[Rfam]
RNA sequence: AAAUAGUGCAAAUUCAAUAAAUUGCAGAAACGUUGUAGGCCU
Numbered sequence: 001a002a003a004u005a006g007u008g009c010a011a012a013u014u015c016a017a018u019a020a021a022u023u024g025c026a027g028a029a030a031c032g033u034u035g036u037a038g039g040c041c042u
Base pairs, nucleotide, nucleotide: 004029007026008025009024010023011022
Description:
ES036 (CssrF) sRNA: a 42-nucleotide RNA from Enterobacteriaceae bacterium strain FGI 57. Lineage of the source: Bacteria > Pseudomonadota > Gammaproteobacteria > Enterobacterales > Enterobacteriaceae. By type it is a small RNA. A search with the family's covariance model found it, with a score of 43 bits. Differentially expressed under several chemical stress conditions. Also identified in Shigella as CssrF.